[Rfam]
Notes:
Glycine riboswitch aptamer: a 96-nucleotide RNA sequence from Actinocorallia herbida. The organism belongs to Actinocorallia, within Bacteria.
RNA sequence: CGACCCCUGGCGGGAGAGACUUCGCGCAAGCCGGCGCGGAGCGCCGAAGGAGCAACGUCCCCGGAACCUCUCAGGCAAACGGACCGUUCGGGUGAG
Numbered sequence: 001c002g003a004c005c006c007c008u009g010g011c012g013g014g015a016g017a018g019a020c021u022u023c024g025c026g027c028a029a030g031c032c033g034g035c036g037c038g039g040a041g042c043g044c045c046g047a048a049g050g051a052g053c054a055a056c057g058u059c060c061c062c063g064g065a066a067c068c069u070c071u072c073a074g075g076c077a078a079a080c081g082g083a084c085c086g087u088u089c090g091g092g093u094g095a096g
Base pairs, nucleotide, nucleotide: 006091007090009088010087011086012085013084020041021040022039023038024037025036043076044075045074046072047071050070051069052068056063057062
Dot-bracket structure: .....((.(((((......((((((..........)))))).(((((..(((...((....))....))))).))).......))))).)).....